[Rfam]
RNA sequence: GCUGAUGAUGAUAUAAUCCAAAUGUAUGAGAUGUGGUGGAUCCAAGACCCUGUUUGACAGGGAGAACCACUUGUUGAAGCUGUAUUUCAGAUGAUAUUACCGGAUUAAACUGAGGU
Numbered sequence: 001g002c003u004g005a006u007g008a009u010g011a012u013a014u015a016a017u018c019c020a021a022a023u024g025u026a027u028g029a030g031a032u033g034u035g036g037u038g039g040a041u042c043c044a045a046g047a048c049c050c051u052g053u054u055u056g057a058c059a060g061g062g063a064g065a066a067c068c069a070c071u072u073g074u075u076g077a078a079g080c081u082g083u084a085u086u087u088c089a090g091a092u093g094a095u096a097u098u099a100c101c102g103g104a105u106u107a108a109a110c111u112g113a114g115g116u
Stems, first nucleotide, its partner, number of pairs: 001116003048062005
RNA: Small nucleolar RNA Z278